[Rfam]
RNA sequence: UGCCAAGGUAUUCUUACGAUCUUCUUGCUGUUGCUCACUGCUGUACCUUUGGUA
Number, nucleotide and partner (000 for none) at each position: 001u054002g053003c052004c051005a050006a049007g047008g046009u045010a044011u043012u000013c000014u000015u000016a000017c000018g000019a000020u000021c000022u000023u000024c000025u000026u000027g034028c033029u000030g000031u000032u000033g028034c027035u000036c000037a000038c000039u000040g000041c000042u000043g011044u010045a009046c008047c007048u000049u006050u005051g004052g003053u002054a001
The record is a 54-nucleotide RNA sequence from Daphoenositta chrysoptera, which matches "Avian HBV RNA encapsidation signal epsilon" in Rfam. The literature on the family includes a 1997 paper in J Virol by Beck and Nassal, "Sequence- and structure-specific determinants in the interaction between the RNA encapsidation signal and reverse transcriptase of avian hepatitis B viruses". Its Rfam clan is "Hepadnavirus_epsilon clan". Its family is annotated with viral genome replication in the Gene Ontology. The base pairs follow the family's consensus structure, which is taken from published work. Rfam 15.1 lists 22 matches to the family in 17 species.